[Rfam]
RNA sequence: GCACCGGGACCGCCUCGACGAUCCGGGGAACCACCGAAGUAGCACCUGGGGUGAAUCCGCGUUCCGCGGUAGGGCCUUCUUCCCGCCCGAAUCCGUCAGCUAACCCGGUAGGCGGCACAGCGGAAGAAA
Numbered sequence: 001g002c003a004c005c006g007g008g009a010c011c012g013c014c015u016c017g018a019c020g021a022u023c024c025g026g027g028g029a030a031c032c033a034c035c036g037a038a039g040u041a042g043c044a045c046c047u048g049g050g051g052u053g054a055a056u057c058c059g060c061g062u063u064c065c066g067c068g069g070u071a072g073g074g075c076c077u078u079c080u081u082c083c084c085g086c087c088c089g090a091a092u093c094c095g096u097c098a099g100c101u102a103a104c105c106c107g108g109u110a111g112g113c114g115g116c117a118c119a120g121c122g123g124a125a126g127a128a129a
Stems, first nucleotide, its partner, number of pairs: 002114001004112002011020002023108005032048002049094003057069004072088004